[Rfam]
RNA sequence: AUUGGAUCAAUGAUGUUUAAAUUACUGCGUUAUCUAUCUGCAAUUUCCUAUUAAGGAAUUGAAGACGAUUAUAGUUGACUGAGAUCUAGU
Numbered sequence: 001a002u003u004g005g006a007u008c009a010a011u012g013a014u015g016u017u018u019a020a021a022u023u024a025c026u027g028c029g030u031u032a033u034c035u036a037u038c039u040g041c042a043a044u045u046u047c048c049u050a051u052u053a054a055g056g057a058a059u060u061g062a063a064g065a066c067g068a069u070u071a072u073a074g075u076u077g078a079c080u081g082a083g084a085u086c087u088a089g090u
Stems, first nucleotide, its partner, number of pairs: 001090007
RNA: Small nucleolar RNA snoR27